[Rfam]
RNA sequence: UAUUACCUUCAGGGCGGGGUGUAAGUCCCCACCGGCGGUAAAGCCCGCGAGCCGAAAGGCAUGAUCCGGUGAAACUCCGGGGCCGACAGUUAAAGUCUGGAUGGAAGAAGGUGUAC
Dot-bracket structure: ...(((((((......(((.......))).[[((((((....[[))))....(.....).....(((((.......)))))]])).(((.....]]))).......)))))))...
Numbered sequence: 001u002a003u004u005a006c007c008u009u010c011a012g013g014g015c016g017g018g019g020u021g022u023a024a025g026u027c028c029c030c031a032c033c034g035g036c037g038g039u040a041a042a043g044c045c046c047g048c049g050a051g052c053c054g055a056a057a058g059g060c061a062u063g064a065u066c067c068g069g070u071g072a073a074a075c076u077c078c079g080g081g082g083c084c085g086a087c088a089g090u091u092a093a094a095g096u097c098u099g100g101a102u103g104g105a106a107g108a109a110g111g112u113g114u115a116c
Stems, first nucleotide, its partner, number of pairs: 004113007017029003031096002033085002035048004043083002053059001065081005087099003
This 116-nucleotide RNA from Fonticella tunisiensis belongs to the Rfam family "FMN riboswitch aptamer (RFN element)". About the family: The RFN element is a highly conserved domain that is found frequently in the 5'-untranslated regions of prokaryotic mRNAs that encode for flavin mononucleotide (FMN) biosynthesis and transport proteins. The match comes from Rfam's covariance-model search (113 bits).